[Rfam]
RNA sequence: AUUAAUAAUCGAGGUCGAGAACCUUAAAAUUUUAA
Numbered sequence: 001a002u003u004a005a006u007a008a009u010c011g012a013g014g015u016c017g018a019g020a021a022c023c024u025u026a027a028a029a030u031u032u033u034a035a
Stems, first nucleotide, its partner, number of pairs: 002035004011025005
Shown here is a 35-nucleotide RNA from Polaribacter pacificus, a member of the family "S16-Flavobacteria ribosomal protein leader". For this family Rfam cites "Discovery of 20 novel ribosomal leader candidates in bacteria and archaea" (Eckert and Weinberg, BMC Microbiol, 2020). It is annotated as a cis-regulatory leader.